The record is a 68-nucleotide RNA, which matches "S15-Flavobacteria ribosomal protein leader" in Rfam. Rfam classes the family as a cis-regulatory leader. The family is grouped with related families in Rfam's "Ribosomal Protein S15 Leader clan".
RNA sequence: UAUAUUUGCACCGCAAAAAGGAGUGUCCUUUUUGAUACAUAACAAUCAUUUAUAGAAAUAUUAGCAUG
Numbered sequence: 001u002a003u004a005u006u007u008g009c010a011c012c013g014c015a016a017a018a019a020g021g022a023g024u025g026u027c028c029u030u031u032u033u034g035a036u037a038c039a040u041a042a043c044a045a046u047c048a049u050u051u052a053u054a055g056a057a058a059u060a061u062u063a064g065c066a067u068g
Base pairs, nucleotide, nucleotide: 014034015033016032017031018030019029020028021027